[Rfam]
RNA sequence: GGAUAUUACUGUUUUGUUAUCUCCAAUCAAUAACACAGUCACACGUGAAGAAAUUAUCUUACGUGUUAUUGUGUUAUUGACUAGAAAUAACAAAAAGUGUUAUUC
Number, nucleotide and partner (000 for none) at each position: 001g000002g104003a103004u102005a101006u000007u000008a000009c000010u000011g000012u095013u094014u093015u092016g091017u090018u089019a088020u087021c000022u085023c084024c000025a082026a000027u080028c079029a078030a077031u076032a075033a074034c073035a072036c071037a070038g069039u068040c000041a066042c065043a064044c063045g062046u061047g060048a059049a000050g057051a000052a000053a000054u000055u000056a000057u050058c000059u048060u047061a046062c045063g044064u043065g042066u041067u000068a039069u038070u037071g036072u035073g034074u033075u032076a031077u030078u029079g028080a027081c000082u025083a000084g023085a022086a000087a020088u019089a018090a017091c016092a015093a014094a013095a012096a000097g000098u000099g000100u000101u005102a004103u003104u002105c000
Background: Rfam assigns this 105-nucleotide sequence from Prunus yedoensis to the family "MIR6274 microRNA precursor family". Gene Ontology terms of the family: RISC complex and miRNA-mediated post-transcriptional gene silencing. Taxonomically the source falls in Prunus yedoensis (Eukaryota, Euphyllophyta, Magnoliopsida, Mesangiospermae).